[Rfam]
RNA: Glutamine riboswitch aptamer (glnA leader)
RNA sequence: UACGUUCAUCUCUUUAUAAGAGACGCAAGUAAGGCAGAGCCUGAAGGAACGGGAA
Numbered sequence: 001u002a003c004g005u006u007c008a009u010c011u012c013u014u015u016a017u018a019a020g021a022g023a024c025g026c027a028a029g030u031a032a033g034g035c036a037g038a039g040c041c042u043g044a045a046g047g048a049a050c051g052g053g054a055a
Stems, first nucleotide, its partner, number of pairs: 003051005009023005026052001032042003